[Rfam]
The family of this 378-nucleotide RNA from Frigoribacterium sp. RIT-PI-h is "transfer-messenger RNA". Pairs were carried over by alignment from the consensus structure, which is taken from published work.
RNA sequence: GGGGAUGAUCGGUUUCGACAUCGCCUGUGUGCGAACGAGAAGCGGGCCGAGGAUCCAGGGUUAUCUCGUAAACGAUCUCUGGAAAACAAUAAGUGCCAAUAACAAGCGCACUGACUUCGCUCUCGCUGCGUAAGCAGUAGAGCCACAUGGAGUCCGUCAGUCUGGUGACCGCCUUCUAACCAGAUCCUGACGUCAUUUAGAUGGCUUGCUGUGUGACUACGCCUGGGGGUCACACGGGACUCGAACUCGGGCUGGGCUCGUCGACCUAGAAGCCAGUAACAAAGGUCGGAGCCGAGUAGAACGCCUCAUCUGGCUACGCCCGUAGAAUGCGUGCAAUCUCAGCGAUGGACGGGGGUUCAAUUCCCCCCAUCUCCACCA
Numbered sequence: 001g002g003g004g005a006u007g008a009u010c011g012g013u014u015u016c017g018a019c020a021u022c023g024c025c026u027g028u029g030u031g032c033g034a035a036c037g038a039g040a041a042g043c044g045g046g047c048c049g050a051g052g053a054u055c056c057a058g059g060g061u062u063a064u065c066u067c068g069u070a071a072a073c074g075a076u077c078u079c080u081g082g083a084a085a086a087c088a089a090u091a092a093g094u095g096c097c098a099a100u101a102a103c104a105a106g107c108g109c110a111c112u113g114a115c116u117u118c119g120c121u122c123u124c125g126c127u128g129c130g131u132a133a134g135c136a137g138u139a140g141a142g143c144c145a146c147a148u149g150g151a152g153u154c155c156g157u158c159a160g161u162c163u164g165g166u167g168a169c170c171g172c173c174u175u176c177u178a179a180c181c182a183g184a185u186c187c188u189g190a191c192g193u194c195a196u197u198u199a200g201a202u203g204g205c206u207u208g209c210u211g212u213g214u215g216a217c218u219a220c221g222c223c224u225g226g227g228g229g230u231c232a233c234a235c236g237g238g239a240c241u242c243g244a245a246c247u248c249g250g251g252c253u254g255g256g257c258u259c260g261u262c263g264a265c266c267u268a269g270a271a272g273c274c275a276g277u278a279a280c281a282a283a284g285g286u287c288g289g290a291g292c293c294g295a296g297u298a299g300a301a302c303g304c305c306u307c308a309u310c311u312g313g314c315u316a317c318g319c320c321c322g323u324a325g326a327a328u329g330c331g332u333g334c335a336a337u338c339u340c341a342g343c344g345a346u347g348g349a350c351g352g353g354g355g356u357u358c359a360a361u362u363c364c365c366c367c368c369a370u371c372u373c374c375a376c377c378a
Stems, first nucleotide, its partner, number of pairs: 001374007019347006027339001033334001035332003040328001043322005048068005054083007121141003125138005155192006161184006168177001171205003175201002209237009221252005255293005262288003267282001269280001272314004351367005